[Rfam]
RNA sequence: AAAUAAAUAACAUUUAUACCGUAGACAGUAGGUGCAAAAAAGCUUAAUUUCCUACCGAGGUAAUACGAUAGAUAACGUUAGAUCAUUUAUAAAUGACUAUUGUAUACAACCUCCAUGUCUAUUCUCGAUAUGGAGGUUUUUUAUUGGAACG
Numbered sequence: 001a002a003a004u005a006a007a008u009a010a011c012a013u014u015u016a017u018a019c020c021g022u023a024g025a026c027a028g029u030a031g032g033u034g035c036a037a038a039a040a041a042g043c044u045u046a047a048u049u050u051c052c053u054a055c056c057g058a059g060g061u062a063a064u065a066c067g068a069u070a071g072a073u074a075a076c077g078u079u080a081g082a083u084c085a086u087u088u089a090u091a092a093a094u095g096a097c098u099a100u101u102g103u104a105u106a107c108a109a110c111c112u113c114c115a116u117g118u119c120u121a122u123u124c125u126c127g128a129u130a131u132g133g134a135g136g137u138u139u140u141u142u143a144u145u146g147g148a149a150c151g
Base pairs, nucleotide, nucleotide: 028055029054030053031052032051034043035042110136111135112134113133114132115131116130117129118128119127